RNA sequence: CAAGCAGACUGCCCUAUCGCUAGUUCGUAAGAAUUAGAGGAAAGUCCGGACACCACAGAGUAGCAUAGCGGGUAACACCCGUCAUUAGAAAUUUUCUAAGAGGACAAGUGCAACAGAAAGUAUGUACAGGUAAUGCUGUAGUGAAACCAGGUAAACUCUAUGCGGUGAAAUGCCAUGUAUAUUUAACGCUUGAGGGCUACUCGCCCGAUGUUUUAGGGGUAGGCAGAUGGAGCUAUCGAGUAAUUGAUAGCCUAGAUAAAUGAUAGGGAUGCGUUUUUCGCAUACAGAAUCCGGCUUAUAGGUCUGCUUUUUUU
Numbered sequence: 001c002a003a004g005c006a007g008a009c010u011g012c013c014c015u016a017u018c019g020c021u022a023g024u025u026c027g028u029a030a031g032a033a034u035u036a037g038a039g040g041a042a043a044g045u046c047c048g049g050a051c052a053c054c055a056c057a058g059a060g061u062a063g064c065a066u067a068g069c070g071g072g073u074a075a076c077a078c079c080c081g082u083c084a085u086u087a088g089a090a091a092u093u094u095u096c097u098a099a100g101a102g103g104a105c106a107a108g109u110g111c112a113a114c115a116g117a118a119a120g121u122a123u124g125u126a127c128a129g130g131u132a133a134u135g136c137u138g139u140a141g142u143g144a145a146a147c148c149a150g151g152u153a154a155a156c157u158c159u160a161u162g163c164g165g166u167g168a169a170a171u172g173c174c175a176u177g178u179a180u181a182u183u184u185a186a187c188g189c190u191u192g193a194g195g196g197c198u199a200c201u202c203g204c205c206c207g208a209u210g211u212u213u214u215a216g217g218g219g220u221a222g223g224c225a226g227a228u229g230g231a232g233c234u235a236u237c238g239a240g241u242a243a244u245u246g247a248u249a250g251c252c253u254a255g256a257u258a259a260a261u262g263a264u265a266g267g268g269a270u271g272c273g274u275u276u277u278u279c280g281c282a283u284a285c286a287g288a289a290u291c292c293g294g295c296u297u298a299u300a301g302g303u304c305u306g307c308u309u310u311u312u313u314u
Stems, first nucleotide, its partner, number of pairs: 002309009011299001012268007020037007042297003046294005051167004058202004063163005068082005083102001085099005103158002108156002110152002125140005171225004182215001185213002194206004232251008
This 314-nucleotide sequence from Flavobacterium sp. NKUCC04_CG belongs to the Rfam family "Bacterial RNase P class A". On this family, see Frank and Pace, Annu Rev Biochem 1998: "Ribonuclease P: unity and diversity in a tRNA processing ribozyme". Rfam classes the family as a ribozyme.